[Rfam]
RNA sequence: CCGUGCUAGAUGGGGAGGUAGCGGUGCCCUAUAACCUGCAAUCCGCUAUAGCAGGAUUGAAUUCCCGGCAUAGGCAUCUCUAUUGUGGGGGCUGCCCUUAAUAAGUGGUGUUGACGGUUGGGUCCUGCGCAACGGAAACUCAUGAACCUCGUCAGGUCCGGAAGGAAGCAGCGAUAAGUGAAACUUUUCGUGUGCCGCGGGGAAGCCUGUCCCGAGCUAACUGUUAAGGUAACGCUCAUGGUAGACUGCCAAAGCUGGGUGCACGG
Numbered sequence: 001c002c003g004u005g006c007u008a009g010a011u012g013g014g015g016a017g018g019u020a021g022c023g024g025u026g027c028c029c030u031a032u033a034a035c036c037u038g039c040a041a042u043c044c045g046c047u048a049u050a051g052c053a054g055g056a057u058u059g060a061a062u063u064c065c066c067g068g069c070a071u072a073g074g075c076a077u078c079u080c081u082a083u084u085g086u087g088g089g090g091g092c093u094g095c096c097c098u099u100a101a102u103a104a105g106u107g108g109u110g111u112u113g114a115c116g117g118u119u120g121g122g123u124c125c126u127g128c129g130c131a132a133c134g135g136a137a138a139c140u141c142a143u144g145a146a147c148c149u150c151g152u153c154a155g156g157u158c159c160g161g162a163a164g165g166a167a168g169c170a171g172c173g174a175u176a177a178g179u180g181a182a183a184c185u186u187u188u189c190g191u192g193u194g195c196c197g198c199g200g201g202g203a204a205g206c207c208u209g210u211c212c213c214g215a216g217c218u219a220a221c222u223g224u225u226a227a228g229g230u231a232a233c234g235c236u237c238a239u240g241g242u243a244g245a246c247u248g249c250c251a252a253a254g255c256u257g258g259g260u261g262c263a264c265g266g
Stems, first nucleotide, its partner, number of pairs: 001266006009058003012030004017025001019023001035055005064259006073250004080244010093231002097228006105221002107218003116212002119209005124201006130192002133190005140181004149174004157166003

The record is a 266-nucleotide RNA sequence from Paratissierella segnis, which matches "Bacterial large signal recognition particle RNA" in Rfam. The organism belongs to Paratissierella, within Bacteria. Rfam classes the family as a non-coding RNA gene. The match comes from Rfam's covariance-model search (224 bits). On this family, see Rosenblad et al., Nucleic Acids Res 2003: "SRPDB: Signal Recognition Particle Database".